RNA sequence: CAAGUCCACCGCGAUGAAGGCAUAGCGAACCACAUCGGCCCCGAGCCGUGCGCAGGCACCCGCGAGGAUGCCUGCGAAGCGUCGGCAGGGGAACGCAUAGGCCAGCCAUUGAGCCACGACAGAGUUGAUAUCCCGGGUGCCAACGCUGUUCAAGUUGCGGAAGGCUAUACAUUCGAGCACGCCAUCGCAAGCGCUCGGAUGACCCAGCGUUGUCGCAGACCC
Dot-bracket structure: ...........(((((..((..[.[[...)).))))).((((..((((((((((((((.((....)).))))))))...)).)))).))))...................(.((.(((..............(.(((((((..(((..........)))...)))....(((((((((.(......]].]).))))))))))))).)))).)))........
Group II catalytic intron D1-D4-6: a 222-nucleotide sequence from Thiomonas sp. X19. The base pairs follow the family's consensus structure. The literature on the family includes a 2001 paper in Trends Genet by Bonen and Vogel, "The ins and outs of group II introns".